[Rfam]
RNA sequence: AAUAUAGCUUUAUUCCAUCUUGUUAAUCAUGCAUUGCUUUAUAAGUGCAUGUAAAAUUCGACAAAUUGCUGGAAAGUCCUUUAUUUAUCUUUAAAUGAAUAAUAGAUAUACUAGGAUAACUAGCAGGGAAGUUUUUGUAUAAUUAUACAAAAAUAUACCUUCAACGACUAUACGUCGAAAGUACUGUUUCUCUUACAAAGUAAGGGCGUCUGCUUGGGAGUUUACCUUCCCCCUCUUUUUCAGGGGGUAGUAUAGGUAAAAAAUUAAAAAGUAUUUUGUUUAGUUUUUUUAAUCGAUACGGAACGAUCCCUGCUUAAUUAAGCAGGGACCUCCCUCUCCUAUGAAUUGGAGGGAAGGAGGACUCUUAAGCCGGGUUAAAUAGUUAUUAUUAUACAAUAUUAUAAUUAUUAUUUAGAUAGUAUUAUGAUAUAGUCUAGUCAACUAGGCAACUAGUUA
Numbered sequence: 001a002a003u004a005u006a007g008c009u010u011u012a013u014u015c016c017a018u019c020u021u022g023u024u025a026a027u028c029a030u031g032c033a034u035u036g037c038u039u040u041a042u043a044a045g046u047g048c049a050u051g052u053a054a055a056a057u058u059c060g061a062c063a064a065a066u067u068g069c070u071g072g073a074a075a076g077u078c079c080u081u082u083a084u085u086u087a088u089c090u091u092u093a094a095a096u097g098a099a100u101a102a103u104a105g106a107u108a109u110a111c112u113a114g115g116a117u118a119a120c121u122a123g124c125a126g127g128g129a130a131g132u133u134u135u136u137g138u139a140u141a142a143u144u145a146u147a148c149a150a151a152a153a154u155a156u157a158c159c160u161u162c163a164a165c166g167a168c169u170a171u172a173c174g175u176c177g178a179a180a181g182u183a184c185u186g187u188u189u190c191u192c193u194u195a196c197a198a199a200g201u202a203a204g205g206g207c208g209u210c211u212g213c214u215u216g217g218g219a220g221u222u223u224a225c226c227u228u229c230c231c232c233c234u235c236u237u238u239u240u241c242a243g244g245g246g247g248u249a250g251u252a253u254a255g256g257u258a259a260a261a262a263a264u265u266a267a268a269a270a271g272u273a274u275u276u277u278g279u280u281u282a283g284u285u286u287u288u289u290u291a292a293u294c295g296a297u298a299c300g301g302a303a304c305g306a307u308c309c310c311u312g313c314u315u316a317a318u319u320a321a322g323c324a325g326g327g328a329c330c331u332c333c334c335u336c337u338c339c340u341a342u343g344a345a346u347u348g349g350a351g352g353g354a355a356g357g358a359g360g361a362c363u364c365u366u367a368a369g370c371c372g373g374g375u376u377a378a379a380u381a382g383u384u385a386u387u388a389u390u391a392u393a394c395a396a397u398a399u400u401a402u403a404a405u406u407a408u409u410a411u412u413u414a415g416a417u418a419g420u421a422u423u424a425u426g427a428u429a430u431a432g433u434c435u436a437g438u439c440a441a442c443u444a445g446g447c448a449a450c451u452a453g454u455u456a
Base pairs, nucleotide, nucleotide: 005025006024007023008022012018013017029040031038057179058178059177060176062174067125068124069123070122071121072120077116078115079114080113126160127159133153134152141146164435166434167433168432169431170430182421183420184419185418186417187416188415189414441454442453443452444451445450